[Rfam]
RNA sequence: GGUGGAAUGGCCGAGUGGUGAGGCAACGGUCUGCAAAACCGUGUACACGGGUUCGAUUCCCGUUUCCACCU
Numbered sequence: 001g002g003u004g005g006a007a008u009g010g011c012c013g014a015g016u017g018g019u020g021a022g023g024c025a026a027c028g029g030u031c032u033g034c035a036a037a038a039c040c041g042u043g044u045a046c047a048c049g050g051g052u053u054c055g056a057u058u059c060c061c062g063u064u065u066c067c068a069c070c071u
Base pairs, nucleotide, nucleotide: 001070002069003068004067005066006065007064010024011023012022026042027041028040029039030038047063048062049061050060051059
The family of this 71-nucleotide RNA from Corynebacterium kroppenstedtii is "tRNA".
From the family's description: Transfer RNA (tRNA) molecules are approximately 80 nucleotides in length.
Gene Ontology term of the family: triplet codon-amino acid adaptor activity.
Lineage of the source: Bacteria > Actinomycetes > Mycobacteriales > Corynebacterium > Corynebacterium kroppenstedtii.
It scores 68 bits against the family's covariance model.
The family's consensus secondary structure is taken from published work.